mir-16 microRNA precursor family: an 81-nucleotide RNA from Electrophorus electricus. The base pairs follow the family's consensus structure, which was predicted with PFOLD. The match comes from Rfam's covariance-model search (38 bits). Its family is annotated with miRNA-mediated post-transcriptional gene silencing and RISC complex in the Gene Ontology. A reference for the family is Calin et al. (2002), "Frequent deletions and down-regulation of micro- RNA genes miR15 and miR16 at 13q14 in chronic lymphocytic leukemia", Proc Natl Acad Sci U S A. The family is grouped with related families in Rfam's "mir-15 clan".

RNA sequence: GCCUAACUUCAGCAGCACGGUCAAUACUGGAGGAUUCAGUAUUGCUUUAACUCCAAUAUUUACGUGCUGCUACAGCCAGAC
Numbered sequence: 001g002c003c004u005a006a007c008u009u010c011a012g013c014a015g016c017a018c019g020g021u022c023a024a025u026a027c028u029g030g031a032g033g034a035u036u037c038a039g040u041a042u043u044g045c046u047u048u049a050a051c052u053c054c055a056a057u058a059u060u061u062a063c064g065u066g067c068u069g070c071u072a073c074a075g076c077c078a079g080a081c
Stems, first nucleotide, its partner, number of pairs: 001081001003079001007075001011071008021062001023060004028055003